[Rfam]
RNA sequence: AUUUAAAGGAUAGCGCCAGGCCUGGGUUUUCAGGUGACGAGGAAAGAGCUUAUCGAAAGAUUCGGCGGAUAGCUCUAGGGGCUGCACUCUACAAGUUGGAACAAAAAAUAAUUGUGAAAUUAUAACAGAAAACCAGCUAAGCAGAAUA
Numbered sequence: 001a002u003u004u005a006a007a008g009g010a011u012a013g014c015g016c017c018a019g020g021c022c023u024g025g026g027u028u029u030u031c032a033g034g035u036g037a038c039g040a041g042g043a044a045a046g047a048g049c050u051u052a053u054c055g056a057a058a059g060a061u062u063c064g065g066c067g068g069a070u071a072g073c074u075c076u077a078g079g080g081g082c083u084g085c086a087c088u089c090u091a092c093a094a095g096u097u098g099g100a101a102c103a104a105a106a107a108a109u110a111a112u113u114g115u116g117a118a119a120u121u122a123u124a125a126c127a128g129a130a131a132a133c134c135a136g137c138u139a140a141g142c143a144g145a146a147u148a
Stems, first nucleotide, its partner, number of pairs: 020035006045076005053065004077090004094138006108123006

glmS glucosamine-6-phosphate activated ribozyme aptamer: a 148-nucleotide sequence. The match comes from Rfam's covariance-model search (85 bits). From the family's description: This entry contains a glucosamine-6-phosphate activated ribozyme that is found in the mRNA for GlmS. GlmS is an enzyme that uses fructose-6-phosphate and glutamine to generate glucosamine-6-phosphate. Rfam classes the family as a riboswitch.